[Rfam]
RNA sequence: CGCCUUGAACGCGGCGCCACCCUGCCCUAUCUUCCGUCCUGUCCGUGCAAGCGGACUAUGGCGAUAAACGCGCAGGUAAUAAGCGGCUCGGACCCGGGGGCGGUACCCGGCGGCUCCACCAAUCACCCGAUCGUUGCGGGUCAUGGGGCCGAAAUAGGAUCGACGGACGUCUAAAGCUGUUUGCUUUCGCUCGGUGAGGUACCACCGUUAUCGGUCCGACAAAGCAUAAUUGCCAACGACAAUCGUGCUCCGGUCGCCGUUGCUGCUUAAGCAGUAACGUAGAUCGAUUCUUGAAGCCCUUGCGUCUAGCAACGUAAGGCGGGGUUCGCAGGCACCUGGCAACAGAAGCCUGCACU
Numbered sequence: 001c002g003c004c005u006u007g008a009a010c011g012c013g014g015c016g017c018c019a020c021c022c023u024g025c026c027c028u029a030u031c032u033u034c035c036g037u038c039c040u041g042u043c044c045g046u047g048c049a050a051g052c053g054g055a056c057u058a059u060g061g062c063g064a065u066a067a068a069c070g071c072g073c074a075g076g077u078a079a080u081a082a083g084c085g086g087c088u089c090g091g092a093c094c095c096g097g098g099g100g101c102g103g104u105a106c107c108c109g110g111c112g113g114c115u116c117c118a119c120c121a122a123u124c125a126c127c128c129g130a131u132c133g134u135u136g137c138g139g140g141u142c143a144u145g146g147g148g149c150c151g152a153a154a155u156a157g158g159a160u161c162g163a164c165g166g167a168c169g170u171c172u173a174a175a176g177c178u179g180u181u182u183g184c185u186u187u188c189g190c191u192c193g194g195u196g197a198g199g200u201a202c203c204a205c206c207g208u209u210a211u212c213g214g215u216c217c218g219a220c221a222a223a224g225c226a227u228a229a230u231u232g233c234c235a236a237c238g239a240c241a242a243u244c245g246u247g248c249u250c251c252g253g254u255c256g257c258c259g260u261u262g263c264u265g266c267u268u269a270a271g272c273a274g275u276a277a278c279g280u281a282g283a284u285c286g287a288u289u290c291u292u293g294a295a296g297c298c299c300u301u302g303c304g305u306c307u308a309g310c311a312a313c314g315u316a317a318g319g320c321g322g323g324g325u326u327c328g329c330a331g332g333c334a335c336c337u338g339g340c341a342a343c344a345g346a347a348g349c350c351u352g353c354a355c356u
Stems, first nucleotide, its partner, number of pairs: 041056005060191005070184002072180004084169002088166003094110005111151007192207004198217002201215003322337004328353006
Alphaproteobacteria transfer-messenger RNA: a 356-nucleotide RNA sequence from Mesobaculum littorinae. A search with the family's covariance model found it, with a score of 298 bits. Rfam classes the family as a non-coding RNA gene. For this family Rfam cites "Phylogenetic analysis of tmRNA secondary structure" (Williams and Bartel, RNA, 1996). Bacterial tmRNA, also known as 10Sa RNA or SsrA, is named for its dual tRNA and mRNA-like properties. Its role is to liberate the mRNA from a stalled ribosome. To accomplish this part of the tmRNA is used as a reading frame that ends in a translation stop signal. The broken mRNA is replaced in the ribosome by the tmRNA and translation of the tmRNA leads to addition of a proteolysis tag to the incomplete protein enabling recognition by a protease. Recently a number of permuted tmRNA genes have been found encoded in two parts. tmRNAs have been identified in eubacteria and some chloroplasts but are absent from archaeal and eukaryote nuclear genomes. Lineage of the source: Bacteria > Pseudomonadati > Pseudomonadota > Rhodobacterales > Mesobaculum.